[Rfam]
This 105-nucleotide RNA from Rossellomorea marisflavi belongs to the Rfam family "SAM riboswitch aptamer (S box leader)". It scores 83 bits against the family's covariance model.
RNA sequence: CACUUAUCCAGAGCGGUGGAGGGAACUGGCCCGAUGAAACCCGGCAACCUACGUAUUGUAAGGUGCUAACUCCAGCAAAAUGGGACUCAUUUUGGAAGAUAAGGU
Numbered sequence: 001c002a003c004u005u006a007u008c009c010a011g012a013g014c015g016g017u018g019g020a021g022g023g024a025a026c027u028g029g030c031c032c033g034a035u036g037a038a039a040c041c042c043g044g045c046a047a048c049c050u051a052c053g054u055a056u057u058g059u060a061a062g063g064u065g066c067u068a069a070c071u072c073c074a075g076c077a078a079a080a081u082g083g084g085a086c087u088c089a090u091u092u093u094g095g096a097a098g099a100u101a102a103g104g105u
Stems, first nucleotide, its partner, number of pairs: 003103006013042001015041003021032003026075004043067004048063002050060004071097001076094006

Gene Ontology term of the family: regulation of gene expression. NCBI's taxonomy places the organism under Bacteria, Bacillota, Bacilli, Bacillaceae, Rossellomorea.